Shown here is an 80-nucleotide RNA sequence from Conger conger, a member of the family "Small nucleolar RNA SNORD72". About the family: snoRNA HBII-240 belongs to the CD family of snoRNAs. It is the human orthologue of the mouse MBII-240 and is predicted to guide 2'O-ribose methylation of the large 28S rRNA at residue U4590.

RNA sequence: GUCUUGUCAAUGAUGUAACAAAUACAAAUGUCUGAACAUAUGAAUUCUAUUGAUUCAAAGUUUUUUUCCUGAGAUAAGAC
Numbered sequence: 001g002u003c004u005u006g007u008c009a010a011u012g013a014u015g016u017a018a019c020a021a022a023u024a025c026a027a028a029u030g031u032c033u034g035a036a037c038a039u040a041u042g043a044a045u046u047c048u049a050u051u052g053a054u055u056c057a058a059a060g061u062u063u064u065u066u067u068c069c070u071g072a073g074a075u076a077a078g079a080c
Stems, first nucleotide, its partner, number of pairs: 002079007